[Rfam]
RNA: T-box leader
RNA sequence: AUGAAAAUGUUGAAGGAUAAAGUAUGUUGUAGUCCAUCUGUAUCGCAUUUGCGAAGAAGAGAGGAGCUUCCCUAGCUGAAAGAAGCUCUAGAUGAAGGACGACAGAAAGCUAAUCUGGAGUGCAGCUAAUCACUGCCGUAUGCCUGCGUUAAGGGAUUUUUGAGAGAUGGAUACGUUUUAUUGUAUCCAUAAUCAGGGUGGUACCGCGAGAUAAGCUCUCGUCCCUGUU
Numbered sequence: 001a002u003g004a005a006a007a008u009g010u011u012g013a014a015g016g017a018u019a020a021a022g023u024a025u026g027u028u029g030u031a032g033u034c035c036a037u038c039u040g041u042a043u044c045g046c047a048u049u050u051g052c053g054a055a056g057a058a059g060a061g062a063g064g065a066g067c068u069u070c071c072c073u074a075g076c077u078g079a080a081a082g083a084a085g086c087u088c089u090a091g092a093u094g095a096a097g098g099a100c101g102a103c104a105g106a107a108a109g110c111u112a113a114u115c116u117g118g119a120g121u122g123c124a125g126c127u128a129a130u131c132a133c134u135g136c137c138g139u140a141u142g143c144c145u146g147c148g149u150u151a152a153g154g155g156a157u158u159u160u161u162g163a164g165a166g167a168u169g170g171a172u173a174c175g176u177u178u179u180a181u182u183g184u185a186u187c188c189a190u191a192a193u194c195a196g197g198g199u200g201g202u203a204c205c206g207c208g209a210g211a212u213a214a215g216c217u218c219u220c221g222u223c224c225c226u227g228u229u
Stems, first nucleotide, its partner, number of pairs: 007121002015116004025104006039091001065087006123135003137148003167190009195226004206222005